The record is a 125-nucleotide sequence from Rhizobium sp. P32RR-XVIII, which matches "Alphaproteobacterial ar14" in Rfam.
For this family Rfam cites "A survey of sRNA families in alpha-proteobacteria" (del Val et al., RNA Biol, 2012).
Its family is annotated with biological process involved in symbiotic interaction in the Gene Ontology.
The organism belongs to Rhizobium, within Bacteria.
Rfam's curators write: Smr14C2 was renamed NfeR1 (Nodule Formation Efficiency RNA) highly expressed in salt stress and during the symbiotic interaction on legume roots.
RNA sequence: GUAUUUUCAGGCGGACCGUUCCUCCUCCCAAGGGACGCCUGAGGGAACAGCGAUACUCCUCCUCCCAAUCGCUGUUCGAAUUUUUCAAAAGCCUGCCGCACCUCCUCCCGCGGCAGGCUUUUUUC
Number, nucleotide and partner (000 for none) at each position: 001g000002u000003a000004u000005u000006u000007u042008c041009a040010g000011g038012c037013g036014g000015a000016c033017c032018g000019u000020u000021c000022c000023u000024c000025c000026u000027c000028c000029c000030a000031a000032g017033g016034g000035a000036c013037g012038c011039c000040u009041g008042a007043g000044g000045g077046a076047a075048c074049a073050g072051c071052g070053a069054u068055a000056c000057u000058c000059c000060u000061c000062c000063u000064c000065c000066c000067a000068a054069u053070c052071g051072c050073u049074g048075u047076u046077c045078g000079a000080a000081u000082u000083u000084u000085u000086c000087a000088a000089a120090a119091g118092c117093c116094u115095g114096c113097c112098g111099c110100a000101c000102c000103u000104c000105c000106u000107c000108c000109c000110g099111c098112g097113g096114c095115a094116g093117g092118c091119u090120u089121u000122u000123u000124u000125c000